[Rfam]
RNA sequence: AGAAACUGUUUCAUUGAUACACAGAAUGACGGAGUAACGCCCUGAAAUGUGCACACCAAGCUACGGUAUGCGGUUUGAACAAAAUAGAACUGUAUAAAGCCCGUUAGAGUCGGCAGAAGGUCGGUCGUAAAGGUGCUGGGAUUUGAUCACAGUAGCUACGAAAGCGUCAGAGUGAUCUGAUGUGCCGCUGAUAUGCCGGGUGUCCAGAAA
Numbered sequence: 001a002g003a004a005a006c007u008g009u010u011u012c013a014u015u016g017a018u019a020c021a022c023a024g025a026a027u028g029a030c031g032g033a034g035u036a037a038c039g040c041c042c043u044g045a046a047a048u049g050u051g052c053a054c055a056c057c058a059a060g061c062u063a064c065g066g067u068a069u070g071c072g073g074u075u076u077g078a079a080c081a082a083a084a085u086a087g088a089a090c091u092g093u094a095u096a097a098a099g100c101c102c103g104u105u106a107g108a109g110u111c112g113g114c115a116g117a118a119g120g121u122c123g124g125u126c127g128u129a130a131a132g133g134u135g136c137u138g139g140g141a142u143u144u145g146a147u148c149a150c151a152g153u154a155g156c157u158a159c160g161a162a163a164g165c166g167u168c169a170g171a172g173u174g175a176u177c178u179g180a181u182g183u184g185c186c187g188c189u190g191a192u193a194u195g196c197c198g199g200g201u202g203u204c205c206a207g208a209a210a
Stems, first nucleotide, its partner, number of pairs: 018053001020051004031043002034040001054202004063104004067096010111198005120189001122187004126160003138157002164183008
This 210-nucleotide RNA from Corynebacterium glutamicum belongs to the Rfam family "Group II catalytic intron D1-D4-5".
Lineage of the source: Bacteria > Actinomycetota > Actinomycetes > Corynebacterium > Corynebacterium glutamicum.
Group II introns are found in rRNA, tRNA and mRNA of organelles in fungi, plants and protists, and also in mRNA in bacteria.
Rfam links the family to the GO term Group II intron splicing.